Overview: Rfam assigns this 85-nucleotide RNA from Octodon degus to the family "mir-3473 microRNA precursor family". Its family is annotated with RISC complex, miRNA-mediated post-transcriptional gene silencing and cellular response to mechanical stimulus in the Gene Ontology. The match comes from Rfam's covariance-model search (72 bits). The base pairs follow the family's consensus structure, which was predicted with RNAalifold.
Nucleotides: 085
Stems, first nucleotide, its partner, number of pairs: 002084021024062001
Number, partner (000 for none) and nucleotide at each position: 001000u002084c003083u004082a005081c006080u007079g008078a009077g010076c011075c012074a013073u014072c015071u016070c017069c018068c019067u020066g021065g022064c023000c024062c025000c026000u027000a028000u029000u030000u031000a032000u033000u034000u035000u036000u037000u038000u039000u040000u041000a042000a043000u044000u045000a046000a047000u048000u049000a050000a051000u052000u053000g054000a055000u056000u057000u058000a059000u060000u061000g062024g063000a064022g065021c066020c067019a068018g069017g070016g071015a072014g073013a074012u075011g076010g077009c078008u079007c080006a081005g082004u083003a084002g085000a